[Rfam]
Nucleotides: 210
Stems, first nucleotide, its partner, number of pairs: 001210010012199004017194017035176007043168011055156007063148004068143003072139001075136006084127003091120001093118009
Number, partner (000 for none) and nucleotide at each position: 001210c002209c003208g004207a005206a006205a007204u008203c009202u010201g011000c012199g013198c014197c015196g016000g017194a018193a019192c020191c021190a022189a023188g024187c025186g026185g027184c028183a029182u030181c031180c032179a033178a034000c035176a036175u037174u038173u039172g040171u041170c042000a043168c044167a045166g046165c047164c048163a049162u050161g051160c052159u053158c054000a055156c056155c057154g058153c059152c060151a061150c062000g063148g064147a065146c066145c067000g068143u069142a070141a071000a072139c073000c074000g075136c076135u077134g078133a079132a080131c081000g082000g083000a084127g085126g086125g087000g088000u089000g090000u091120c092000a093118g094117c095116a096115g097114u098113a099112g100111c101110u102000a103000g104000u105000g106000c107000a108000u109000c110101a111100g112099c113098u114097a115096c116095u117094g118093c119000c120091g121000u122000u123000a124000a125086c126085c127084c128000g129000u130000a131080g132079u133078u134077u135076a136075g137000g138000a139072g140000g141070u142069u143068g144000g145066g146065g147064u148063c149000g150061g151060u152059g153058g154057c155056g156055g157000u158053g159052a160051g161050c162049a163048u164047g165046g166045c167044u168043g169000u170041g171040a172039c173038a174037a175036a176035u177000u178033u179032u180031g181030g182029a183028u184027g185026c186025c187024g188023c189022u190021u191020g192019g193018u194017u195000g196015c197014g198013g199012c200000c201010c202009a203008g204007a205006u206005u207004u208003c209002g210001g